A member of the RNA family "c-di-AMP riboswitch aptamer (ydaO/yuaA leader)" from Actinomadura sp. BRA 177, 205 nucleotides long. The organism belongs to Actinomadura, within Bacteria.

RNA sequence: GAGGCCGAACCGCCGAAUCCACGGGUCGCAACCAGUGCCCCGAGGAACCGGGGAACCACUUUCGGAGCGUUCGGGGGACCGCCCCCGGGCCGCCACCGUGAGGGGUGAAUCCGCAACGCCGCGGGACGACCCGCGCACGCUCGCGGAGGGGCUGCUCCGGCCCCAACCCGUCAGCUAACCCGGUAGGCGGACCAGGAGAGGAGAA
Numbered sequence: 001g002a003g004g005c006c007g008a009a010c011c012g013c014c015g016a017a018u019c020c021a022c023g024g025g026u027c028g029c030a031a032c033c034a035g036u037g038c039c040c041c042g043a044g045g046a047a048c049c050g051g052g053g054a055a056c057c058a059c060u061u062u063c064g065g066a067g068c069g070u071u072c073g074g075g076g077g078a079c080c081g082c083c084c085c086c087g088g089g090c091c092g093c094c095a096c097c098g099u100g101a102g103g104g105g106u107g108a109a110u111c112c113g114c115a116a117c118g119c120c121g122c123g124g125g126a127c128g129a130c131c132c133g134c135g136c137a138c139g140c141u142c143g144c145g146g147a148g149g150g151g152c153u154g155c156u157c158c159g160g161c162c163c164c165a166a167c168c169c170g171u172c173a174g175c176u177a178a179c180c181c182g183g184u185a186g187g188c189g190g191a192c193c194a195g196g197a198g199a200g201g202a203g204a205a
Stems, first nucleotide, its partner, number of pairs: 011189004018046003047184006057102001103169003111146004149163004